[Rfam]
RNA sequence: GACUUACCGUAUCGAGCAAGCUUAAGCCGGCAGGUGUAGGCGAAGCGAAAGCGAGUCUGAACAGGGCGUUCAGUUCGAUGCGGUAGACCCGAAACCAGGUGAUCUAGCCAUGGUCAGGUUGAAGGUGGAGUAACACCCACUGGAGGACCGAACCCACGUCUGUUGAAAAAGACGGGGAUGAACUGUGGCUAGGGGUGAAAGGCCAAUCAAACCUGGAAAUAGCUGGUU
Numbered sequence: 001g002a003c004u005u006a007c008c009g010u011a012u013c014g015a016g017c018a019a020g021c022u023u024a025a026g027c028c029g030g031c032a033g034g035u036g037u038a039g040g041c042g043a044a045g046c047g048a049a050a051g052c053g054a055g056u057c058u059g060a061a062c063a064g065g066g067c068g069u070u071c072a073g074u075u076c077g078a079u080g081c082g083g084u085a086g087a088c089c090c091g092a093a094a095c096c097a098g099g100u101g102a103u104c105u106a107g108c109c110a111u112g113g114u115c116a117g118g119u120u121g122a123a124g125g126u127g128g129a130g131u132a133a134c135a136c137c138c139a140c141u142g143g144a145g146g147a148c149c150g151a152a153c154c155c156a157c158g159u160c161u162g163u164u165g166a167a168a169a170a171g172a173c174g175g176g177g178a179u180g181a182a183c184u185g186u187g188g189c190u191a192g193g194g195g196u197g198a199a200a201g202g203c204c205a206a207u208c209a210a211a212c213c214u215g216g217a218a219a220u221a222g223c224u225g226g227u228u
Stems, first nucleotide, its partner, number of pairs: 005085013020041004026035003045052002055067004088226002091223001095216006104192011115180001117149004124141005153177003157174005194204003